[Rfam]
Shown here is a 333-nucleotide sequence from Rousettus aegyptiacus, a member of the family "7SK RNA". A search with the family's covariance model found it, with a score of 338 bits. NCBI's taxonomy places the organism under Eukaryota, Gnathostomata, Sarcopterygii, Chiroptera, Rousettus.
RNA sequence: GGAUGUGAGGGUGAUCUGGCUGUGACAUCUGUCACCCCAUUGAUCACCAGGGUUGGUUUGGCUGAUCUGGCUGGCUAGGCAGAUAUCCGCUUCCUCCCUCACUGCUCCACGUGCAUCCCUCCUGAAGCUGCAUGCUCGGUUAAAGAGGAUGACCUUCCCCAAUAGAGUAGAGGACCAUUCUUCUAUCAAGGGUAUAUGAGUAGCUGCGCUCCCCUGCUAGAACCUCCAAACAAAGUCUCAAGGUCCAUUUGUAGGAGAAUGUAGGGUAGUCAAGCUUCCAAGACUCCAGAUAAAUUCAAAUGAGGCACUGUACAUGGCAGUCUGCCUUUAUUU
Numbered sequence: 001g002g003a004u005g006u007g008a009g010g011g012u013g014a015u016c017u018g019g020c021u022g023u024g025a026c027a028u029c030u031g032u033c034a035c036c037c038c039a040u041u042g043a044u045c046a047c048c049a050g051g052g053u054u055g056g057u058u059u060g061g062c063u064g065a066u067c068u069g070g071c072u073g074g075c076u077a078g079g080c081a082g083a084u085a086u087c088c089g090c091u092u093c094c095u096c097c098c099u100c101a102c103u104g105c106u107c108c109a110c111g112u113g114c115a116u117c118c119c120u121c122c123u124g125a126a127g128c129u130g131c132a133u134g135c136u137c138g139g140u141u142a143a144a145g146a147g148g149a150u151g152a153c154c155u156u157c158c159c160c161a162a163u164a165g166a167g168u169a170g171a172g173g174a175c176c177a178u179u180c181u182u183c184u185a186u187c188a189a190g191g192g193u194a195u196a197u198g199a200g201u202a203g204c205u206g207c208g209c210u211c212c213c214c215u216g217c218u219a220g221a222a223c224c225u226c227c228a229a230a231c232a233a234a235g236u237c238u239c240a241a242g243g244u245c246c247a248u249u250u251g252u253a254g255g256a257g258a259a260u261g262u263a264g265g266g267u268a269g270u271c272a273a274g275c276u277u278c279c280a281a282g283a284c285u286c287c288a289g290a291u292a293a294a295u296u297c298a299a300a301u302g303a304g305g306c307a308c309u310g311u312a313c314a315u316g317g318c319a320g321u322c323u324g325c326c327u328u329u330a331u332u333u
Stems, first nucleotide, its partner, number of pairs: 001108003005102007013093002018090001024087002027084007035074002037070003042067004047061002116173002119167003122139004127135002140162002147158003203275003209269002212266006224257004230252005298333003302328005307321005